[Rfam]
RNA sequence: CUGCAGUCAAUUAAGCCAACUGGGUUCCUCUGCUGGUGAGUGCCCAGUGUGCAAUGGCUGCAAAUAGCAACCUCUUCCGUAGUGUACACAGCCUGCUGCUUGUAUGGGCUGCCCUAAGAGACCUUGGAGACACUG
Dot-bracket structure: .((((.............((((..(.(............).)..)))).)))).........................((........((((((...........)))))).........)).............
A member of the RNA family "Small nucleolar RNA SNORA70" from Heterocephalus glaber, 135 nucleotides long. Gene Ontology terms of the family: nucleolus and RNA processing. About the family: snoRNA U70 seems to be exclusive to mammals and is a member of the H/ACA class of snoRNA which contain H (ANANNA) and ACA box motifs. H/ACA box snoRNAs are involved in the conversion of uridines to pseudouridines (5-ribosyluracil) a constituent of structural RNAs (transfer, ribosomal, small nuclear, and small nucleolar). On this family, see Charette and Gray, IUBMB Life 2000: "Pseudouridine in RNA: what, where, how, and why".